[Rfam]
RNA sequence: CAACGGCGCUUGAUCACGCCGCUGUUCGAAGAAGGCCCGUCCCCCGCCUCUUCGGACAAAAGGACAAAGGCUCCAUCCCCCUCUCCGGCCUUUGUCCCAAAAAGCAGCCGCCAUGGUCAGUCCCCCCCUCCAGGCCAUGGCGGCUUUUU
Numbered sequence: 001c002a003a004c005g006g007c008g009c010u011u012g013a014u015c016a017c018g019c020c021g022c023u024g025u026u027c028g029a030a031g032a033a034g035g036c037c038c039g040u041c042c043c044c045c046g047c048c049u050c051u052u053c054g055g056a057c058a059a060a061a062g063g064a065c066a067a068a069g070g071c072u073c074c075a076u077c078c079c080c081c082u083c084u085c086c087g088g089c090c091u092u093u094g095u096c097c098c099a100a101a102a103a104g105c106a107g108c109c110g111c112c113a114u115g116g117u118c119a120g121u122c123c124c125c126c127c128c129u130c131c132a133g134g135c136c137a138u139g140g141c142g143g144c145u146u147u148u149u
Base pairs, nucleotide, nucleotide: 025056026055027054028053029052030051031050034048035047036046062097063096064095065094066093067092068091069090070089071088106145108143109142110141111140112139113138114137115136116135117134118133
Rfam assigns this 149-nucleotide sequence from Martelella mediterranea to the family "Alphaproteobacterial sRNA ar7". The pairing is the family consensus, mapped onto this sequence. A reference for the family is del Val et al. (2012), "A survey of sRNA families in alpha-proteobacteria", RNA Biol. Lineage of the source: Bacteria > Alphaproteobacteria > Hyphomicrobiales > Martelella > Martelella mediterranea.